This 99-nucleotide sequence from Pelodictyon luteolum belongs to the Rfam family "Bacterial small signal recognition particle RNA". The literature on the family includes a 2003 paper in Nucleic Acids Res by Rosenblad et al., "SRPDB: Signal Recognition Particle Database". About the family: The signal recognition particle (SRP) is a universally conserved ribonucleoprotein involved in the co-translational targeting of proteins to membranes. NCBI's taxonomy places the organism under Bacteria, Chlorobiota, Chlorobiia, Pelodictyon, Pelodictyon luteolum. The match comes from Rfam's covariance-model search (67 bits).
RNA sequence: GAGUAAGUCCUAUACAACACUUGGUUGCCCAACCAUGUCAGAUCCGGAAGGAAGCAGCAUCCGGCAAUUCAGGUGUGUGAUAUAGUCAGCUUGCUCUCC
Number, nucleotide and partner (000 for none) at each position: 001g000002a000003g000004u093005a092006a091007g090008u089009c000010c085011u084012a083013u082014a081015c077016a000017a076018c075019a074020c073021u072022u071023g000024g068025u067026u066027g065028c064029c063030c000031a000032a000033c000034c000035a060036u059037g058038u057039c000040a000041g000042a000043u052044c051045c050046g000047g000048a000049a000050g045051g044052a043053a000054g000055c000056a000057g038058c037059a036060u035061c000062c000063g029064g028065c027066a026067a025068u024069u000070c000071a022072g021073g020074u019075g018076u017077g015078u000079g000080a000081u014082a013083u012084a011085g010086u000087c000088a000089g008090c007091u006092u005093g004094c000095u000096c000097u000098c000099c000